[Rfam]
RNA sequence: ACGGCGAAUGCCGGCGGGAUUACGUGGACCUUCAGGGUCGCCGGUUCGAAUCCGGCCGGGCAUCUGCCCGUAGCUCAGCUGUUAGAGCAUGAGGCACAUCUCGCCACCACCUCGUCGCCGUGCC
Numbered sequence: 001a002c003g004g005c006g007a008a009u010g011c012c013g014g015c016g017g018g019a020u021u022a023c024g025u026g027g028a029c030c031u032u033c034a035g036g037g038u039c040g041c042c043g044g045u046u047c048g049a050a051u052c053c054g055g056c057c058g059g060g061c062a063u064c065u066g067c068c069c070g071u072a073g074c075u076c077a078g079c080u081g082u083u084a085g086a087g088c089a090u091g092a093g094g095c096a097c098a099u100c101u102c103g104c105c106a107c108c109a110c111c112u113c114g115u116c117g118c119c120g121u122g123c124c
Stems, first nucleotide, its partner, number of pairs: 002120006013105007023094001033091002040056005057070005073088004